The record is an 80-nucleotide RNA from Eleutherodactylus coqui, which matches "mir-92 microRNA precursor family" in Rfam. Rfam links the family to the GO terms miRNA-mediated post-transcriptional gene silencing and RISC complex. The organism belongs to Eleutherodactylus, within Eukaryota. On this family, see Mourelatos et al., Genes Dev 2002: "miRNPs: a novel class of ribonucleoproteins containing numerous microRNAs". Its Rfam clan is "mir-92 microRNA precursor clan". The base pairs follow the family's consensus structure, which was predicted with PFOLD. About the family: This family represents the microRNA precursor mir-92. A search with the family's covariance model found it, with a score of 84 bits.
RNA sequence: CUUUCUGUGCAGGUUGGGAUUGAUUGCAAUGCUGUUGUUGUUUAUGUGGUAUUGCACUUGUCCCGGCCUGUUGAGGAUAG
Numbered sequence: 001c002u003u004u005c006u007g008u009g010c011a012g013g014u015u016g017g018g019a020u021u022g023a024u025u026g027c028a029a030u031g032c033u034g035u036u037g038u039u040g041u042u043u044a045u046g047u048g049g050u051a052u053u054g055c056a057c058u059u060g061u062c063c064c065g066g067c068c069u070g071u072u073g074a075g076g077a078u079a080g
Stems, first nucleotide, its partner, number of pairs: 004076003009071006016064005022058001024056001026055009